The family of this 78-nucleotide sequence from Drosophila navojoa is "Small nucleolar RNA Me28S-Gm3255".
Pairs were carried over by alignment from the consensus structure, which was predicted with PFOLD.
By type it is a C/D-box small nucleolar RNA.
Rfam links the family to the GO terms nucleolus and RNA processing.
The family is grouped with related families in Rfam's "SNORD60 clan".
NCBI's taxonomy places the organism under Eukaryota, Hexapoda, Cyclorrhapha, Drosophilinae, mojavensis species complex.
Nucleotides: 078
Base pairs, nucleotide, nucleotide: 001078003076038049039048040047
Number, partner (000 for none) and nucleotide at each position: 001078a002000u003076u004000a005000g006000u007000c008000u009000g010000a011000u012000g013000a014000a015000u016000a017000u018000a019000u020000a021000u022000u023000u024000u025000u026000c027000u028000g029000a030000c031000a032000c033000c034000u035000c036000a037000a038049a039048u040047g041000a042000a043000u044000c045000a046000a047040u048039g049038u050000g051000a052000u053000u054000c055000c056000a057000a058000c059000u060000g061000u062000u063000a064000u065000u066000a067000a068000c069000a070000a071000c072000u073000g074000a075000a076003a077000u078001u